[Rfam]
A member of the RNA family "TPP riboswitch aptamer (THI element)" from Desulfonema ishimotonii, 94 nucleotides long. The family's consensus secondary structure is taken from published work. The match comes from Rfam's covariance-model search (72 bits).
RNA sequence: AUAACGUGUUAGGGGUGCUUUUUAGAAAGAGCUGAGACAUACCCUUGAACUUGACCCGGAUAAUACCGGCGUAAGGAAACACUGUGAUCAACGG
Numbered sequence: 001a002u003a004a005c006g007u008g009u010u011a012g013g014g015g016u017g018c019u020u021u022u023u024a025g026a027a028a029g030a031g032c033u034g035a036g037a038c039a040u041a042c043c044c045u046u047g048a049a050c051u052u053g054a055c056c057c058g059g060a061u062a063a064u065a066c067c068g069g070c071g072u073a074a075g076g077a078a079a080c081a082c083u084g085u086g087a088u089c090a091a092c093g094g
Base pairs, nucleotide, nucleotide: 006082007081008080009079010078011045012044013043014042016039017032018031019030020029021028050075051074052073053072056069057068058067059066